This 124-nucleotide RNA sequence from Negativicoccus succinicivorans belongs to the Rfam family "c-di-AMP riboswitch aptamer (ydaO/yuaA leader)". Lineage of the source: Bacteria > Bacillota > Negativicutes > Veillonellales > Negativicoccus. A search with the family's covariance model found it, with a score of 83 bits.
[Rfam]
RNA sequence: UAAAAUGAAAUGCCGAAUUUUCUGACGAAAACGGGGGAACCAAAUCUUGGGGUGAAUCGAAAGAGGAAGACAACCUUAUGCUUCUAACCCGACAGCUAACCUCGUAGGCAAAAAGUAAGGUCCC
Numbered sequence: 001u002a003a004a005a006u007g008a009a010a011u012g013c014c015g016a017a018u019u020u021u022c023u024g025a026c027g028a029a030a031a032c033g034g035g036g037g038a039a040c041c042a043a044a045u046c047u048u049g050g051g052g053u054g055a056a057u058c059g060a061a062a063g064a065g066g067a068a069g070a071c072a073a074c075c076u077u078a079u080g081c082u083u084c085u086a087a088c089c090c091g092a093c094a095g096c097u098a099a100c101c102u103c104g105u106a107g108g109c110a111a112a113a114a115g116u117a118a119g120g121u122c123c124c
Stems, first nucleotide, its partner, number of pairs: 011110004018030003031105006041049002050090003058063001066084004